The family of this 82-nucleotide sequence from Agreia sp. Leaf210 is "ZMP/ZTP riboswitch aptamer (pfl RNA motif)". A search with the family's covariance model found it, with a score of 50 bits.

RNA sequence: UCUUGCUGUCGCAACUGGCGUUCAGAUGGUCACCAUCGGGAAGCGACUGACACGAAUUCGGCCGCGCGCCUGGGUCGAUCCG
Numbered sequence: 001u002c003u004u005g006c007u008g009u010c011g012c013a014a015c016u017g018g019c020g021u022u023c024a025g026a027u028g029g030u031c032a033c034c035a036u037c038g039g040g041a042a043g044c045g046a047c048u049g050a051c052a053c054g055a056a057u058u059c060g061g062c063c064g065c066g067c068g069c070c071u072g073g074g075u076c077g078a079u080c081c082g
Stems, first nucleotide, its partner, number of pairs: 003052001006049001008047005015040002017070005026036004059077005